This 135-nucleotide sequence from Castor canadensis belongs to the Rfam family "Small nucleolar RNA SNORA40". Taxonomically the source falls in Castor (Eukaryota, Teleostomi, Theria, Eutheria). From the family's description: The snoRNA ACA 40 belongs to the H/ACA family of snoRNAs and guides the pseudouridylation of 28S rRNA subunit at position U4565. NB This family has a high threshold value to exclude a large number of closely related sequences that do not appear to have conserved H and ACA boxes, and may be pseudogenes. The match comes from Rfam's covariance-model search (89 bits). The family's consensus secondary structure was predicted with RNAalifold.
RNA sequence: AGCACUUGGGUGUGUUUUUGUUUCACUUGUGGGCAAAGACAUUUGGACCCGUCUACAGGUGCAAAAGAUAAAUUCUCUUUUGCAAGCCAGAACUCAUUGUUUAGUAUGAGUUUUGAUACAUAUAGAAGCUACUCU
Numbered sequence: 001a002g003c004a005c006u007u008g009g010g011u012g013u014g015u016u017u018u019u020g021u022u023u024c025a026c027u028u029g030u031g032g033g034c035a036a037a038g039a040c041a042u043u044u045g046g047a048c049c050c051g052u053c054u055a056c057a058g059g060u061g062c063a064a065a066a067g068a069u070a071a072a073u074u075c076u077c078u079u080u081u082g083c084a085a086g087c088c089a090g091a092a093c094u095c096a097u098u099g100u101u102u103a104g105u106a107u108g109a110g111u112u113u114u115g116a117u118a119c120a121u122a123u124a125g126a127a128g129c130u131a132c133u134c135u
Stems, first nucleotide, its partner, number of pairs: 002062007011045001014040008026031001073131001076128001079126004088115010